[Rfam]
RNA sequence: GGCCCCGGGUGGCCCGAGGCCUCGGCCCGGUCAGACCCUGGCGUACUUCCCCAACGCCAGGUUCACGAUCGGGCCGGGACCCCGCGCCAUCACAGGCCAUCG
Numbered sequence: 001g002g003c004c005c006c007g008g009g010u011g012g013c014c015c016g017a018g019g020c021c022u023c024g025g026c027c028c029g030g031u032c033a034g035a036c037c038c039u040g041g042c043g044u045a046c047u048u049c050c051c052c053a054a055c056g057c058c059a060g061g062u063u064c065a066c067g068a069u070c071g072g073g074c075c076g077g078g079a080c081c082c083c084g085c086g087c088c089a090u091c092a093c094a095g096g097c098c099a100u101c102g
Base pairs, nucleotide, nucleotide: 010089011088012087013086015084016083018081019080021078022077023076024075025074026073027072028071029070030069031068032067034064035063037061038060039059040058041057042056043055044054

This 102-nucleotide RNA from Gordonia sp. NB41Y belongs to the Rfam family "mraW RNA". A search with the family's covariance model found it, with a score of 66 bits. Rfam classes the family as a cis-regulatory element.